This 121-nucleotide sequence from Paenibacillus agri belongs to the Rfam family "Bacillus sRNA ncr1015". The organism belongs to Paenibacillus, within Bacteria.

[Rfam]
RNA sequence: AUAUAAGAUAGACUUUCUAUGCCUAUUCAUAAAUUGAAAAGUUGCGAUCAGAUUAUAUCAUCUAGUCUGGUCAUGUGCAAUAUAGAAAGAACCUGAAUGAAAGAUUCAGGUUCUUUCUUUG
Numbered sequence: 001a002u003a004u005a006a007g008a009u010a011g012a013c014u015u016u017c018u019a020u021g022c023c024u025a026u027u028c029a030u031a032a033a034u035u036g037a038a039a040a041g042u043u044g045c046g047a048u049c050a051g052a053u054u055a056u057a058u059c060a061u062c063u064a065g066u067c068u069g070g071u072c073a074u075g076u077g078c079a080a081u082a083u084a085g086a087a088a089g090a091a092c093c094u095g096a097a098u099g100a101a102a103g104a105u106u107c108a109g110g111u112u113c114u115u116u117c118u119u120u121g
Stems, first nucleotide, its partner, number of pairs: 035073003040066001042064001044062001085117012

A reference for the family is Irnov et al. (2010), "Identification of regulatory RNAs in Bacillus subtilis", Nucleic Acids Res. By type it is a small RNA.